A member of the RNA family "TPP riboswitch aptamer (THI element)" from Altererythrobacter sp. B11, 110 nucleotides long.

RNA sequence: ACUCAUCCCCGGGGGAGCGCUGCGACGGCGCUUGAGAUGGUGGCACGAGCCGCCGACCCGCUGAACCUGAUCCGGUUAAGACCGGCGGAGGGAGGGAGCGGUUUUCAUCC
Numbered sequence: 001a002c003u004c005a006u007c008c009c010c011g012g013g014g015g016a017g018c019g020c021u022g023c024g025a026c027g028g029c030g031c032u033u034g035a036g037a038u039g040g041u042g043g044c045a046c047g048a049g050c051c052g053c054c055g056a057c058c059c060g061c062u063g064a065a066c067c068u069g070a071u072c073c074g075g076u077u078a079a080g081a082c083c084g085g086c087g088g089a090g091g092g093a094g095g096g097a098g099c100g101g102u103u104u105u106c107a108u109c110c
Stems, first nucleotide, its partner, number of pairs: 006097004010060004016032005039054005066091003072085004
It scores 62 bits against the family's covariance model. The base pairs follow the family's consensus structure, which is taken from published work.